RNA sequence: CUUAUUGGUGGUUCAACAUUAAAGUACUUUACAAGUACAUAUAUUAUUUAAAUUGGUUAUGUAAUUAGUGCAUUAAUGUUUAACCCCAUGAAUAAUGUACA
Numbered sequence: 001c002u003u004a005u006u007g008g009u010g011g012u013u014c015a016a017c018a019u020u021a022a023a024g025u026a027c028u029u030u031a032c033a034a035g036u037a038c039a040u041a042u043a044u045u046a047u048u049u050a051a052a053u054u055g056g057u058u059a060u061g062u063a064a065u066u067a068g069u070g071c072a073u074u075a076a077u078g079u080u081u082a083a084c085c086c087c088a089u090g091a092a093u094a095a096u097g098u099a100c101a
Stems, first nucleotide, its partner, number of pairs: 005092002008089004013083001016079004020031004033053001037048001059073005